[Rfam]
RNA sequence: CGGUUGGGAGGUCCGCCGAUGCGGACCGUCGGGGUCGUUACCUCGCCCGGCCG
Dot-bracket structure: ((((((((.(((((((....)))))))..(((((......)))))))))))))
Numbered sequence: 001c002g003g004u005u006g007g008g009a010g011g012u013c014c015g016c017c018g019a020u021g022c023g024g025a026c027c028g029u030c031g032g033g034g035u036c037g038u039u040a041c042c043u044c045g046c047c048c049g050g051c052c053g
Stems, first nucleotide, its partner, number of pairs: 001053008010027007030045005
Source information: Rfam assigns this 53-nucleotide RNA from Rhodovulum sp. PH10 to the family "DUF3800-VI RNA". The source organism's lineage runs through Bacteria, Pseudomonadati, Rhodobacterales, Paracoccaceae and Rhodovulum. The base pairs follow the family's consensus structure, which is taken from published work.